[Rfam]
RNA sequence: UCCGCUGCGAGACGGAAUCUGAAAGAAGCUGUAAGCAAACCUCUGACCUGACGGACAGAAACCGCAUAAAAGGCUCGGAAAUGCGGAUAAGGUGGCUAAAAACACUGAAGUCCAAAAGUUGCUGGAAGUACGAGUAAAUGCGGCAGGUGUCAAUGACGGUGUUAAAAUG
Number, nucleotide and partner (000 for none) at each position: 001u016002c015003c014004g013005c000006u011007g000008c000009g000010a000011g006012a000013c004014g003015g002016a001017a000018u000019c000020u000021g000022a000023a000024a000025g000026a000027a000028g000029c000030u167031g000032u165033a000034a000035g162036c161037a000038a000039a000040c000041c155042u000043c000044u152045g151046a148047c147048c146049u145050g144051a000052c000053g000054g000055a000056c000057a000058g000059a000060a000061a000062c143063c142064g141065c140066a139067u138068a000069a000070a000071a000072g000073g135074c134075u133076c000077g131078g000079a000080a000081a000082u130083g129084c128085g113086g112087a111088u110089a000090a000091g106092g105093u104094g103095g000096c000097u000098a000099a000100a000101a000102a000103c094104a093105c092106u091107g000108a000109a000110g088111u087112c086113c085114a000115a000116a000117a000118g000119u000120u000121g000122c000123u000124g000125g000126a000127a000128g084129u083130a082131c077132g000133a075134g074135u073136a000137a000138a067139u066140g065141c064142g063143g062144c050145a049146g048147g047148u046149g000150u000151c045152a044153a000154u000155g041156a000157c000158g000159g000160u000161g036162u035163u000164a000165a032166a000167a030168u000169g000
Background
The family of this 169-nucleotide RNA sequence from bacterium 1XD42-8 is "Group II catalytic intron D1-D4-3". A search with the family's covariance model found it, with a score of 116 bits.